RNA sequence: UAAGUCCUGCAUGGCAAAGUCUAACCAACAGCCAUUACCUAGUCCUUGGAUGCGAAGUGGUAACAUCAGCAUUAAGCGUAGGGCGGGGAACAUCAGAGCCAGAAUUAAUAUAUGAAGCCAUACAGCCCCGAAAUCAUCAGUUGGGAGAGCCGAUUCCGUUGAACUCGAAGCAGGCAGAAAUGUUGGAUUCGUUAUGGUAAGAAUACAGCAGACUUCCCGGGGUCUCAGGGAC
Dot-bracket structure: ..........((((....((.[.[[..))..))))..((..(.((((((((((..(.((....)))..)))))...)).))).).)).....................................((((((............(((((.(((..(((..........)))...))).....(((((.((((......]].])))).)))))..))))))))))).........
Numbered sequence: 001u002a003a004g005u006c007c008u009g010c011a012u013g014g015c016a017a018a019g020u021c022u023a024a025c026c027a028a029c030a031g032c033c034a035u036u037a038c039c040u041a042g043u044c045c046u047u048g049g050a051u052g053c054g055a056a057g058u059g060g061u062a063a064c065a066u067c068a069g070c071a072u073u074a075a076g077c078g079u080a081g082g083g084c085g086g087g088g089a090a091c092a093u094c095a096g097a098g099c100c101a102g103a104a105u106u107a108a109u110a111u112a113u114g115a116a117g118c119c120a121u122a123c124a125g126c127c128c129c130g131a132a133a134u135c136a137u138c139a140g141u142u143g144g145g146a147g148a149g150c151c152g153a154u155u156c157c158g159u160u161g162a163a164c165u166c167g168a169a170g171c172a173g174g175c176a177g178a179a180a181u182g183u184u185g186g187a188u189u190c191g192u193u194a195u196g197g198u199a200a201g202a203a204u205a206c207a208g209c210a211g212a213c214u215u216c217c218c219g220g221g222g223u224c225u226c227a228g229g230g231a232c
Stems, first nucleotide, its partner, number of pairs: 011035004019029002022200001024198002038087002042084001044082003047078002049073005056066001058065002125223006143217005149175003154169003181210005187204004
Shown here is a 232-nucleotide RNA from Hespellia stercorisuis, a member of the family "Group II catalytic intron D1-D4-6". Lineage of the source: Bacteria > Bacillati > Bacillota > Lachnospirales > Hespellia stercorisuis. The pairing is the family consensus, mapped onto this sequence. For this family Rfam cites "Control of branch-site choice by a group II intron" (Chu et al., EMBO J, 2001).